[Rfam]
About this RNA: The record is a 105-nucleotide RNA sequence from Canis lupus, which matches "mir-8834 microRNA precursor family" in Rfam. The match comes from Rfam's covariance-model search (73 bits). The base pairs follow the family's consensus structure, which was predicted with RNAalifold.

RNA sequence: AGGAGCAACAGCCCCAGUGGUUUGGCCAGCUCUGGCAGACCUGGAUUCACUCUGGCAGGAACUAAGGAGCUCUCCGUCUGCAGGGCCUGGAGGCUCCGGGCGGGG
Numbered sequence: 001a002g003g004a005g006c007a008a009c010a011g012c013c014c015c016a017g018u019g020g021u022u023u024g025g026c027c028a029g030c031u032c033u034g035g036c037a038g039a040c041c042u043g044g045a046u047u048c049a050c051u052c053u054g055g056c057a058g059g060a061a062c063u064a065a066g067g068a069g070c071u072c073u074c075c076g077u078c079u080g081c082a083g084g085g086c087c088u089g090g091a092g093g094c095u096c097c098g099g100g101c102g103g104g105g
Base pairs, nucleotide, nucleotide: 002097003096004095005094006093009089010088011087012085013084014083019078020077021076024073025072028071029070030069031068032067033066037063040059041058042057043056